Shown here is a 283-nucleotide sequence from Candidatus Synechococcus spongiarum, a member of the family "Cyanobacteria transfer-messenger RNA". Its Rfam clan is "tRNA clan". Pairs were carried over by alignment from the consensus structure, which is taken from published work. Bacterial tmRNA, also known as 10Sa RNA or SsrA, is named for its dual tRNA and mRNA-like properties. Its role is to liberate the mRNA from a stalled ribosome. To accomplish this part of the tmRNA is used as a reading frame that ends in a translation stop signal. The broken mRNA is replaced in the ribosome by the tmRNA and translation of the tmRNA leads to addition of a proteolysis tag to the incomplete protein enabling recognition by a protease. Recently a number of permuted tmRNA genes have been found encoded in two parts. tmRNAs have been identified in eubacteria and some chloroplasts but are absent from archaeal and eukaryote nuclear genomes.
RNA sequence: GUGCUACCUUGAGAAGGUUCACAUGCUGUGAACUAGGUGGCUCACACCAGUGUUUCGGACAGCGGUUCGAUUCCGCUCAGCUCCACCUUUCACGGGGCUGCAAUGGUUUCGACGGGGCAUGAGGAGGGUGACUGAAGCCUGCUCGGUCAGAGCAACUUCGUAACAGCGAACAACAUCGUUCGUUUCUCUCGCCAGGCCGCCCCUGUUGCCGCCUGAGCCUUCAAGGGAGAUGGGGUGAGGUCAGCCUUAUUACCAAAAUGACCCGUGGGGGCUGAGAGGCCCC
Numbered sequence: 001g002u003g004c005u006a007c008c009u010u011g012a013g014a015a016g017g018u019u020c021a022c023a024u025g026c027u028g029u030g031a032a033c034u035a036g037g038u039g040g041c042u043c044a045c046a047c048c049a050g051u052g053u054u055u056c057g058g059a060c061a062g063c064g065g066u067u068c069g070a071u072u073c074c075g076c077u078c079a080g081c082u083c084c085a086c087c088u089u090u091c092a093c094g095g096g097g098c099u100g101c102a103a104u105g106g107u108u109u110c111g112a113c114g115g116g117g118c119a120u121g122a123g124g125a126g127g128g129u130g131a132c133u134g135a136a137g138c139c140u141g142c143u144c145g146g147u148c149a150g151a152g153c154a155a156c157u158u159c160g161u162a163a164c165a166g167c168g169a170a171c172a173a174c175a176u177c178g179u180u181c182g183u184u185u186c187u188c189u190c191g192c193c194a195g196g197c198c199g200c201c202c203c204u205g206u207u208g209c210c211g212c213c214u215g216a217g218c219c220u221u222c223a224a225g226g227g228a229g230a231u232g233g234g235g236u237g238a239g240g241u242c243a244g245c246c247u248u249a250u251u252a253c254c255a256a257a258a259u260g261a262c263c264c265g266u267g268g269g270g271g272c273u274g275a276g277a278g279g280c281c282c283c
Base pairs, nucleotide, nucleotide: 017033018032019031020030021029022028023027036133037132038131040129041128042127043126047124048123050120051119052118053117054116055115056114057113061077062076063075064074065073078100079099080098081097082096083095084094140154141153142152143151144150192217195214196213199209200208227254229251230250231249232248233247234246235245236244268283269282270281271280272279273278